A member of the RNA family "tRNA" from Thelephora terrestris, 72 nucleotides long. Taxonomically the source falls in Thelephora (Eukaryota, Fungi, Basidiomycota, Thelephorales). Rfam classes the family as a transfer RNA.
RNA sequence: GGCCGUGUGGCGUAAUGGUAGCGCGUCUGACUACGAAUCAGGAGGUUGUAGUUUCGAGUACUACCUCGGUCA
Numbered sequence: 001g002g003c004c005g006u007g008u009g010g011c012g013u014a015a016u017g018g019u020a021g022c023g024c025g026u027c028u029g030a031c032u033a034c035g036a037a038u039c040a041g042g043a044g045g046u047u048g049u050a051g052u053u054u055c056g057a058g059u060a061c062u063a064c065c066u067c068g069g070u071c072a
Stems, first nucleotide, its partner, number of pairs: 001071005007065001010024004026042005048064005